Rfam assigns this 66-nucleotide sequence from Orthonyx spaldingii to the family "Small nucleolar RNA SNORD42". NCBI's taxonomy places the organism under Eukaryota, Deuterostomia, Archosauria, Australaves, Orthonyx. A search with the family's covariance model found it, with a score of 53 bits. The base pairs follow the family's consensus structure, which was predicted with PFOLD. About the family: snoRNA U42 is found in intron 3 of the ribosomal protein L23a (RPL23a) gene in humans and is also present in mice. Rfam classes the family as a C/D-box small nucleolar RNA. Gene Ontology terms of the family: nucleolus and RNA processing. For this family Rfam cites "Purified box C/D snoRNPs are able to reproduce site-specific 2'-O-methylation of target RNA in vitro" (Galardi et al., Mol Cell Biol, 2002).
RNA sequence: GUGCAAAUGAUGUAAACUUGUGUUCUGCUGAGUAAUGUGAUGCUUCCAAAGGAACCACUGAUGCAC
Numbered sequence: 001g002u003g004c005a006a007a008u009g010a011u012g013u014a015a016a017c018u019u020g021u022g023u024u025c026u027g028c029u030g031a032g033u034a035a036u037g038u039g040a041u042g043c044u045u046c047c048a049a050a051g052g053a054a055c056c057a058c059u060g061a062u063g064c065a066c
Stems, first nucleotide, its partner, number of pairs: 001066005